RNA sequence: AUACAAUUGAAUGCAAUCCUUCAUAUAUCCUCGAUAAUAUGGUUCGAAAGUCUCUACCAGAUCACCGUAAAUGAUUUGACUAUGAAGGCAGAUACUUCUAUU
Numbered sequence: 001a002u003a004c005a006a007u008u009g010a011a012u013g014c015a016a017u018c019c020u021u022c023a024u025a026u027a028u029c030c031u032c033g034a035u036a037a038u039a040u041g042g043u044u045c046g047a048a049a050g051u052c053u054c055u056a057c058c059a060g061a062u063c064a065c066c067g068u069a070a071a072u073g074a075u076u077u078g079a080c081u082a083u084g085a086a087g088g089c090a091g092a093u094a095c096u097u098c099u100a101u102u
Stems, first nucleotide, its partner, number of pairs: 018088008031047004058078007

Rfam assigns this 102-nucleotide sequence from Cytobacillus depressus to the family "Purine riboswitch aptamer". The organism belongs to Cytobacillus, within Bacteria. Rfam describes the family as follows. Riboswitches are metabolite binding domains within certain messenger RNAs that serve as precision sensors for their corresponding targets.